Rfam assigns this 100-nucleotide RNA from Dermacoccus sp. 147Ba to the family "mraW RNA".
RNA sequence: GUAGCCCUCUGCGUCCAGGUCUCCGGCCGCUGCUUUCCGGCACACCUUCCCCGGUGCCGGAGCGUAGCGGCGGGGGCCCUGGACGCAGAGUCGCAGCGGC
Numbered sequence: 001g002u003a004g005c006c007c008u009c010u011g012c013g014u015c016c017a018g019g020u021c022u023c024c025g026g027c028c029g030c031u032g033c034u035u036u037c038c039g040g041c042a043c044a045c046c047u048u049c050c051c052c053g054g055u056g057c058c059g060g061a062g063c064g065u066a067g068c069g070g071c072g073g074g075g076g077c078c079c080u081g082g083a084c085g086c087a088g089a090g091u092c093g094c095a096g097c098g099g100c
Base pairs, nucleotide, nucleotide: 010087011086012085013084014083015082016081018079019078021076022075023074024073026071027070028069029068030067031066032065033064035062036061037060038059039058040057041056042055043054